[Rfam]
RNA sequence: UCUUUGAUUGGCGGCUCUAACGACAUCGUAGCGAUCAAAGGGUUGUAGCGUUACUAGAGGGAAGAUGCUGAAAUAGCGCAAUACAGGUGGCGAAGCUAGUGCCUGUGCAUCGAACGACUGGCGGGU
Numbered sequence: 001u002c003u004u005u006g007a008u009u010g011g012c013g014g015c016u017c018u019a020a021c022g023a024c025a026u027c028g029u030a031g032c033g034a035u036c037a038a039a040g041g042g043u044u045g046u047a048g049c050g051u052u053a054c055u056a057g058a059g060g061g062a063a064g065a066u067g068c069u070g071a072a073a074u075a076g077c078g079c080a081a082u083a084c085a086g087g088u089g090g091c092g093a094a095g096c097u098a099g100u101g102c103c104u105g106u107g108c109a110u111c112g113a114a115c116g117a118c119u120g121g122c123g124g125g126u
Base pairs, nucleotide, nucleotide: 001041002040003039004038005037006036007035008034009033010032029056030055031054048079049078050077051076052075053074065110066109067108068107083106084105085104086103087102088101095122096121097120098119099118100117
Betaproteobacteria-1 RNA: a 126-nucleotide RNA sequence.
The family's consensus secondary structure is taken from published work.